Shown here is a 61-nucleotide RNA from Mojavia pulchra, a member of the family "Nitrogen stress-induced RNA 1". For this family Rfam cites "Heterocyst-specific transcription of NsiR1, a non-coding RNA encoded in a tandem array of direct repeats in cyanobacteria" (Ionescu et al., J Mol Biol, 2010). The match comes from Rfam's covariance-model search (62 bits). Pairs were carried over by alignment from the consensus structure. The source organism's lineage runs through Bacteria, Bacillati, Cyanophyceae, Mojavia and Mojavia pulchra.
RNA sequence: UGGUAGAUGCACCCUGAUAACUAACUCCCCUAGUAGGCUAGCCCUACUGGGGAUUUUUUGA
Dot-bracket structure: .(((......)))..............((((((((((.....)))))))))).........
Numbered sequence: 001u002g003g004u005a006g007a008u009g010c011a012c013c014c015u016g017a018u019a020a021c022u023a024a025c026u027c028c029c030c031u032a033g034u035a036g037g038c039u040a041g042c043c044c045u046a047c048u049g050g051g052g053a054u055u056u057u058u059u060g061a
Stems, first nucleotide, its partner, number of pairs: 002013003028052010